[Rfam]
RNA sequence: AACAAGCGGUGAUGAUGCUGACGUUAUGUCACUGCCCUGAAAACCAACUGUGGGUCCUUAAGUCACUACCUCAUCUGAGCUUGUU
Numbered sequence: 001a002a003c004a005a006g007c008g009g010u011g012a013u014g015a016u017g018c019u020g021a022c023g024u025u026a027u028g029u030c031a032c033u034g035c036c037c038u039g040a041a042a043a044c045c046a047a048c049u050g051u052g053g054g055u056c057c058u059u060a061a062g063u064c065a066c067u068a069c070c071u072c073a074u075c076u077g078a079g080c081u082u083g084u085u
Base pairs, nucleotide, nucleotide: 002084003083004082005081006080007079
A member of the RNA family "Small nucleolar RNA SNORD11B" from Anguilla anguilla, 85 nucleotides long. The family is grouped with related families in Rfam's "SNORD11 clan". Gene Ontology terms of the family: nucleolus and RNA processing. On this family, see Yang et al., Nucleic Acids Res 2006: "snoSeeker: an advanced computational package for screening of guide and orphan snoRNA genes in the human genome".